[Rfam]
RNA sequence: UACUUAUCAAGAGUGGUGGAGGGACUGGCCCUAUGAAGCCCAGCAACCUACUUUUAAGGUUAAUUAAUGUGUAAAUGCACAAAGUUUACUUUAAAUGUGUGGUGCCAAAUCCCGUUAGAUAAGAAGUCUAAUAUAGUAUGAGAA
Numbered sequence: 001u002a003c004u005u006a007u008c009a010a011g012a013g014u015g016g017u018g019g020a021g022g023g024a025c026u027g028g029c030c031c032u033a034u035g036a037a038g039c040c041c042a043g044c045a046a047c048c049u050a051c052u053u054u055u056a057a058g059g060u061u062a063a064u065u066a067a068u069g070u071g072u073a074a075a076u077g078c079a080c081a082a083a084g085u086u087u088a089c090u091u092u093a094a095a096u097g098u099g100u101g102g103u104g105c106c107a108a109a110u111c112c113c114g115u116u117a118g119a120u121a122a123g124a125a126g127u128c129u130a131a132u133a134u135a136g137u138a139u140g141a142g143a144a
Stems, first nucleotide, its partner, number of pairs: 001144001003142005008136001013041001015040003021031003025114001027112002043105003047102002049099003110135001115131006
SAM riboswitch aptamer (S box leader): a 144-nucleotide RNA from Clostridium taeniosporum.
Rfam links the family to the GO term regulation of gene expression.
NCBI's taxonomy places the organism under Bacteria, Bacillota, Clostridia, Clostridiaceae, Clostridium.
It scores 62 bits against the family's covariance model.
The SAM riboswitch is found upstream of a number of genes which code for proteins involved in methionine or cysteine biosynthesis in Gram-positive bacteria.